Rfam assigns this 105-nucleotide RNA from Legionella israelensis to the family "traJ-II RNA". Lineage of the source: Bacteria > Pseudomonadota > Gammaproteobacteria > Legionellaceae > Legionella. The family has 47 seed sequences and 174 matches in Rfam 15.1.
RNA sequence: GGGCAAGAUAGGUGAAGGAUGCUAACCAGCAAGCUGGUUAGCAUCCUUCACGAGUCUUAUUCGCACCUUCGGUGCUCAAUGUAAAAACUCAUAUUUUGCAGUUUU
Dot-bracket structure: ..(((((((..((((((.(((..((((((....))))))..))).))))))...((......(((((...))))).....).).........)))))))......
Numbered sequence: 001g002g003g004c005a006a007g008a009u010a011g012g013u014g015a016a017g018g019a020u021g022c023u024a025a026c027c028a029g030c031a032a033g034c035u036g037g038u039u040a041g042c043a044u045c046c047u048u049c050a051c052g053a054g055u056c057u058u059a060u061u062c063g064c065a066c067c068u069u070c071g072g073u074g075c076u077c078a079a080u081g082u083a084a085a086a087a088c089u090c091a092u093a094u095u096u097u098g099c100a101g102u103u104u105u
Stems, first nucleotide, its partner, number of pairs: 003099007012051006019044003024039006055083001056081001063075005